[Rfam]
RNA sequence: GCCGGGGACCUCGUGGAAUGAGGCCGUCCGAACCAGGUCAGGACCGGAAGGUAGCAGCCUUAAGGAUUUGGACUUAUGCCUCGAGAUAAUCUCCGGCACU
Numbered sequence: 001g002c003c004g005g006g007g008a009c010c011u012c013g014u015g016g017a018a019u020g021a022g023g024c025c026g027u028c029c030g031a032a033c034c035a036g037g038u039c040a041g042g043a044c045c046g047g048a049a050g051g052u053a054g055c056a057g058c059c060u061u062a063a064g065g066a067u068u069u070g071g072a073c074u075u076a077u078g079c080c081u082c083g084a085g086a087u088a089a090u091c092u093c094c095g096g097c098a099c100u
Stems, first nucleotide, its partner, number of pairs: 004094005010085004015080001018077005026067004035060004043052003
Shown here is a 100-nucleotide RNA sequence from Chlamydiales bacterium SCGC AG-110-P3, a member of the family "Bacterial small signal recognition particle RNA". It scores 50 bits against the family's covariance model. Rfam's curators write: The signal recognition particle (SRP) is a universally conserved ribonucleoprotein involved in the co-translational targeting of proteins to membranes.